[Rfam]
Shown here is a 600-nucleotide part of an RNA from Methanolacinia petrolearia, a member of the family "Archaeal small subunit ribosomal RNA". The organism belongs to Methanolacinia petrolearia, within Archaea. A reference for the family is Yusupov et al. (2001), "Crystal structure of the ribosome at 5.5 A resolution", Science. The base pairs follow the family's consensus structure, which is taken from published work. Its Rfam clan is "SSU clan". Rfam's curators put it in the seed alignment.
RNA sequence: UGGCGGGGGAGCACCACAACGGGUGGAGCCUGCGGUUUAAUUGGACUCAACGCCGGGAAGCUCACCGGAUAGGACAGCGGAAUGAUAACCGGGCUGAAGACUCUGUUUGACCAGCUGAGAGGAGGUGCAUGGCCGUCGUCAGUUCGUACUGUGAAGCAUCCUGUUUAGUCAGGCAACGAGCGAGACCCACGCCAACAGUUGCCAGCAUGUUCUCCGGAAUGAUGGGGACACUGUUGGGACCGCCUCUGCUAAAGGGGAGGAAGGAAUGGGCAACGGUAGGUCAGCAUGCCCCGAAUUAUCCGGGCUACACGCGGGCUACAAUGGUCGGGACAAUGAGCAACGACACUGAGAAGUGUAGUCAAUCUCCUAAACCCGUCCCAAGUUCGGAUUGUGGGCUGUAACUCGCCCACAUGAAGCUGGAAUCCGUAGUAAUCGCGUUUCAAAAUAGCGCGGUGAAUGCGUCCCUGCUCCUUGCACACACCGCCCGUCAAACCACCCGAGUGAGGUUUGGAUGAGGCUGUGGUUUUUGCCGCAGUCGAAUCUAGGUUUUGCAAGGGGGGUUAAGUCGUAACAAGGUAGCCGUAGGGGAAUCUGCGGCUG
Numbered sequence: 001u002g003g004c005g006g007g008g009g010a011g012c013a014c015c016a017c018a019a020c021g022g023g024u025g026g027a028g029c030c031u032g033c034g035g036u037u038u039a040a041u042u043g044g045a046c047u048c049a050a051c052g053c054c055g056g057g058a059a060g061c062u063c064a065c066c067g068g069a070u071a072g073g074a075c076a077g078c079g080g081a082a083u084g085a086u087a088a089c090c091g092g093g094c095u096g097a098a099g100a101c102u103c104u105g106u107u108u109g110a111c112c113a114g115c116u117g118a119g120a121g122g123a124g125g126u127g128c129a130u131g132g133c134c135g136u137c138g139u140c141a142g143u144u145c146g147u148a149c150u151g152u153g154a155a156g157c158a159u160c161c162u163g164u165u166u167a168g169u170c171a172g173g174c175a176a177c178g179a180g181c182g183a184g185a186c187c188c189a190c191g192c193c194a195a196c197a198g199u200u201g202c203c204a205g206c207a208u209g210u211u212c213u214c215c216g217g218a219a220u221g222a223u224g225g226g227g228a229c230a231c232u233g234u235u236g237g238g239a240c241c242g243c244c245u246c247u248g249c250u251a252a253a254g255g256g257g258a259g260g261a262a263g264g265a266a267u268g269g270g271c272a273a274c275g276g277u278a279g280g281u282c283a284g285c286a287u288g289c290c291c292c293g294a295a296u297u298a299u300c301c302g303g304g305c306u307a308c309a310c311g312c313g314g315g316c317u318a319c320a321a322u323g324g325u326c327g328g329g330a331c332a333a334u335g336a337g338c339a340a341c342g343a344c345a346c347u348g349a350g351a352a353g354u355g356u357a358g359u360c361a362a363u364c365u366c367c368u369a370a371a372c373c374c375g376u377c378c379c380a381a382g383u384u385c386g387g388a389u390u391g392u393g394g395g396c397u398g399u400a401a402c403u404c405g406c407c408c409a410c411a412u413g414a415a416g417c418u419g420g421a422a423u424c425c426g427u428a429g430u431a432a433u434c435g436c437g438u439u440u441c442a443a444a445a446u447a448g449c450g451c452g453g454u455g456a457a458u459g460c461g462u463c464c465c466u467g468c469u470c471c472u473u474g475c476a477c478a479c480a481c482c483g484c485c486c487g488u489c490a491a492a493c494c495a496c497c498c499g500a501g502u503g504a505g506g507u508u509u510g511g512a513u514g515a516g517g518c519u520g521u522g523g524u525u526u527u528u529g530c531c532g533c534a535g536u537c538g539a540a541u542c543u544a545g546g547u548u549u550u551g552c553a554a555g556g557g558g559g560g561u562u563a564a565g566u567c568g569u570a571a572c573a574a575g576g577u578a579g580c581c582g583u584a585g586g587g588g589a590a591u592c593u594g595c596g597g598c599u600g
Base pairs, nucleotide, nucleotide: 001478002477003475004474005473007472008471009470010469011468012467013466016462017461020426021425022424023423024422025319027317028316029315030314031313032312033311034310035308036307041056042055043054044053065303066302067301068300069299070298071297075117076116077115078114079112080111087107088106089105091103092102093101121292122291124290125289126288127287130286131285132281133280134279135277136276137275138274142181143180144179145178146177147176149156150155160173161172162171163170187269188268189267192237193236194235195234196233197232198231202226203225206224207223208222209220210219211218212217240260241259243257244256245255246254247253323378324377326375327374328373329372335366336365337364340359341358344355345354346353347352385416390411391410392409393408394407395406396405432454433453434452435451436450437449438448439447481575483572486568487567489565491562492561493560494559496557497556498555501552502551503550504549505548506547507546508545509544510543511542512541513540516537517536518535519534520533521532522531523530524529577600578599579598580597581596582595583594584593585592586591